[Rfam]
RNA: TPP riboswitch aptamer (THI element)
RNA sequence: CGUGAAAUGUAGGGGGACCAGUGUUGCUGGUUGAGACUGUAUGCAUGAACAUACUGACCCUUCGAACCUGAACUGGUUGAGACCAGCGUAGGAAACAUAUUCAAUCCAUAA
Numbered sequence: 001c002g003u004g005a006a007a008u009g010u011a012g013g014g015g016g017a018c019c020a021g022u023g024u025u026g027c028u029g030g031u032u033g034a035g036a037c038u039g040u041a042u043g044c045a046u047g048a049a050c051a052u053a054c055u056g057a058c059c060c061u062u063c064g065a066a067c068c069u070g071a072a073c074u075g076g077u078u079g080a081g082a083c084c085a086g087c088g089u090a091g092g093a094a095a096c097a098u099a100u101u102c103a104a105u106c107c108a109u110a111a
Base pairs, nucleotide, nucleotide: 007098008097009096010095011061012060013059014058016055017031018030019029020028021027039054040053041052042051067092068091069090070089073086074085075084076083